Shown here is a 114-nucleotide RNA sequence from Vicugna pacos, a member of the family "Potassium channel RNA editing signal". A reference for the family is Bhalla et al. (2004), "Control of human potassium channel inactivation by editing of a small mRNA hairpin", Nat Struct Mol Biol. This family represents a group of sequences related to the human potassium channel Kv1.1 hairpin element which directs the efficient modification of an adenosine to inosine by an adenosine deaminase acting on RNA (ADAR). The ADAR modification causes an isoleucine/valine recoding event which lies in the ion-conducting pore of the potassium channel. The match comes from Rfam's covariance-model search (105 bits). Pairs were carried over by alignment from the consensus structure, which is taken from published work.
RNA sequence: GUGGGCUACGGGGACAUGAGGCCCGUCACAGUGGGGGGCAAGAUCGUGGGCUCACUGUGCGCCAUCGCCGGUGUCCUCACCAUCGCCCUGCCCGUGCCCGUCAUCGUCUCUAAC
Number, nucleotide and partner (000 for none) at each position: 001g114002u113003g000004g111005g110006c000007u000008a107009c106010g105011g104012g000013g102014a101015c100016a000017u000018g097019a000020g000021g095022c094023c000024c000025g000026u000027c000028a000029c000030a000031g000032u000033g000034g000035g000036g000037g077038g076039c000040a074041a000042g000043a000044u000045c000046g000047u000048g000049g063050g062051c061052u000053c000054a000055c000056u000057g000058u000059g000060c000061g051062c050063c049064a000065u000066c000067g000068c000069c000070g000071g000072u000073g000074u040075c000076c038077u037078c000079a000080c000081c000082a000083u000084c000085g000086c000087c000088c000089u000090g000091c000092c000093c000094g022095u021096g000097c018098c000099c000100g015101u014102c013103a000104u011105c010106g009107u008108c000109u000110c005111u004112a000113a002114c001